[Rfam]
Rfam assigns this 101-nucleotide RNA sequence from Clostridium puniceum to the family "Guanidine-I riboswitch aptamer". NCBI's taxonomy places the organism under Bacteria, Bacillota, Eubacteriales, Clostridiaceae, Clostridium. About the family: This family represents a conserved RNA structure found upstream of the ykkC and yxkD genes in Bacillus subtilis and related genes in other bacteria.
RNA sequence: UCAUUAGUUUUCUAGGGUUCCGUAGCUAUAAAUGCUAGACUGGUCCAAGAGAAGGCACUUAUAAUUGACUAUGUACACAGAAGUAUAAAAGCCUAGAAGAU
Numbered sequence: 001u002c003a004u005u006a007g008u009u010u011u012c013u014a015g016g017g018u019u020c021c022g023u024a025g026c027u028a029u030a031a032a033u034g035c036u037a038g039a040c041u042g043g044u045c046c047a048a049g050a051g052a053a054g055g056c057a058c059u060u061a062u063a064a065u066u067g068a069c070u071a072u073g074u075a076c077a078c079a080g081a082a083g084u085a086u087a088a089a090a091g092c093c094u095a096g097a098a099g100a101u
Base pairs, nucleotide, nucleotide: 007056008055009054010053011052012051015046016045020043021042022040023037024036025035026034057074058073060071061070076096078099082094083093